[Rfam]
RNA sequence: CCGGCAAAUGCUGGUGGAACUACAUCUUGUCGCGGGUUCGAGCCCCGCCUCUUUUACAAAGCUAAGAGAGUAGCUCAGUUGGUAGAGCAGAACCGUUUCACCGAAACCUUGUUGCCGGAAC
Numbered sequence: 001c002c003g004g005c006a007a008a009u010g011c012u013g014g015u016g017g018a019a020c021u022a023c024a025u026c027u028u029g030u031c032g033c034g035g036g037u038u039c040g041a042g043c044c045c046c047g048c049c050u051c052u053u054u055u056a057c058a059a060a061g062c063u064a065a066g067a068g069a070g071u072a073g074c075u076c077a078g079u080u081g082g083u084a085g086a087g088c089a090g091a092a093c094c095g096u097u098u099c100a101c102c103g104a105a106a107c108c109u110u111g112u113u114g115c116c117g118g119a120a121c
Stems, first nucleotide, its partner, number of pairs: 002117006013102007025091003032048005039082001049070008073088004
RNA: Y RNA-like
Organism: Halocynthiibacter styelae